Shown here is a 133-nucleotide sequence from Erinaceus europaeus, a member of the family "Small nucleolar RNA SNORA13".
By type it is an H/ACA-box small nucleolar RNA.
The base pairs follow the family's consensus structure, which was predicted with CMfinder.
ACA13 is a member of the H/ACA class of snoRNA that guide the sites of modification of uridines to pseudouridines.
Clan: SNORA13 clan.
Lineage of the source: Eukaryota > Eumetazoa > Deuterostomia > Eutheria > Erinaceus.
The family has 50 seed sequences and 1,034 matches in Rfam 15.1.
It is one of the family's seed sequences.
RNA sequence: AGCCUUUGUGUUGCCCAUUCACUUUGGAAACUAGUGGAUGUGGUGUCAAAAAAGGCUCAAAUCGAACACUUAUCAGGCUUUUCCUGCCUUUGAUUUUGAUGUCUUAGGCAUAGGAACUGCAUAAGUAACAGCA
Number, nucleotide and partner (000 for none) at each position: 001a000002g056003c055004c054005u053006u052007u051008g000009u048010g047011u000012u045013g044014c043015c042016c040017a039018u038019u037020c036021a035022c034023u033024u000025u000026g000027g000028a000029a000030a000031c000032u000033a023034g022035u021036g020037g019038a018039u017040g016041u000042g015043g014044u013045g012046u000047c010048a009049a000050a000051a007052a006053a005054g004055g003056c002057u000058c000059a000060a000061a000062u000063c000064g000065a000066a000067c000068a126069c125070u124071u123072a000073u000074c119075a118076g117077g000078c000079u000080u000081u000082u115083c114084c113085u112086g111087c000088c108089u107090u000091u000092g103093a102094u000095u000096u000097u000098g000099a000100u000101g000102u093103c092104u000105u000106a000107g089108g088109c000110a000111u086112a085113g084114g083115a082116a000117c076118u075119g074120c000121a000122u000123a071124a070125g069126u068127a000128a000129c000130a000131g000132c000133a000